[Rfam]
RNA sequence: GGUUUGUAGGCAGUGUAGUUAGCUGAUUGUCUCCAUCAAUUCGCAAUCACUAACUCUACUGCCAUCAAAAC
Numbered sequence: 001g002g003u004u005u006g007u008a009g010g011c012a013g014u015g016u017a018g019u020u021a022g023c024u025g026a027u028u029g030u031c032u033c034c035a036u037c038a039a040u041u042c043g044c045a046a047u048c049a050c051u052a053a054c055u056c057u058a059c060u061g062c063c064a065u066c067a068a069a070a071c
Stems, first nucleotide, its partner, number of pairs: 003069004009063002012060004017055006024049007